[Rfam]
RNA sequence: AGACGUUCCCGCGGGAGUCCGGUGUGACCGGGCUGAGAGGGGGGCUGUGAGCCCCCGACCGUCGAACCUGAUCCGGGUCAUGCCGGCGCAGGGAGGCAGGAGUGAGCCCUA
Dot-bracket structure: .....((.((((((..(((((.......)))))......(((((((...)))))))..))))....((((..((((......))))..))))..)).))............
Numbered sequence: 001a002g003a004c005g006u007u008c009c010c011g012c013g014g015g016a017g018u019c020c021g022g023u024g025u026g027a028c029c030g031g032g033c034u035g036a037g038a039g040g041g042g043g044g045c046u047g048u049g050a051g052c053c054c055c056c057g058a059c060c061g062u063c064g065a066a067c068c069u070g071a072u073c074c075g076g077g078u079c080a081u082g083c084c085g086g087c088g089c090a091g092g093g094a095g096g097c098a099g100g101a102g103u104g105a106g107c108c109c110u111a
Stems, first nucleotide, its partner, number of pairs: 006099002009096002011062004017033005040056007067092004073086004